[Rfam]
RNA sequence: AUAUAAACAAAGAUUUUGUUUUUCAGGUUCACUGAAUAACUGAUGUAUUUGGUUCAUAUUAUGGACCAGAUACAUCAGUUAUUCAGUGAACCUGAAAAAGAAAUAUUUGCUUAUAU
Numbered sequence: 001a002u003a004u005a006a007a008c009a010a011a012g013a014u015u016u017u018g019u020u021u022u023u024c025a026g027g028u029u030c031a032c033u034g035a036a037u038a039a040c041u042g043a044u045g046u047a048u049u050u051g052g053u054u055c056a057u058a059u060u061a062u063g064g065a066c067c068a069g070a071u072a073c074a075u076c077a078g079u080u081a082u083u084c085a086g087u088g089a090a091c092c093u094g095a096a097a098a099a100g101a102a103a104u105a106u107u108u109g110c111u112u113a114u115a116u
Stems, first nucleotide, its partner, number of pairs: 002115005009108003013104001015102003019099008028090018050068004
This 116-nucleotide sequence from Trifolium medium belongs to the Rfam family "MIR2593 microRNA precursor family".
Pairs were carried over by alignment from the consensus structure, which was predicted with RNAalifold.
Gene Ontology terms of the family: RISC complex and miRNA-mediated post-transcriptional gene silencing.
The organism belongs to Trifolium, within Eukaryota.